[Rfam]
RNA sequence: CAAGUAUAAAAAAGCGAACCAAAGACAGUAGGGAGGUAACUUUAAUAAUCCUACCGAGGGGAGACUUAAAAAACUUCUUUUUUAAGCUUCCCAAAAGGAAGCUUUUUUAAAUAUUUAA
Numbered sequence: 001c002a003a004g005u006a007u008a009a010a011a012a013a014g015c016g017a018a019c020c021a022a023a024g025a026c027a028g029u030a031g032g033g034a035g036g037u038a039a040c041u042u043u044a045a046u047a048a049u050c051c052u053a054c055c056g057a058g059g060g061g062a063g064a065c066u067u068a069a070a071a072a073a074c075u076u077c078u079u080u081u082u083u084a085a086g087c088u089u090c091c092c093a094a095a096a097g098g099a100a101g102c103u104u105u106u107u108u109a110a111a112u113a114u115u116u117a118a
Stems, first nucleotide, its partner, number of pairs: 028054006034041002085103007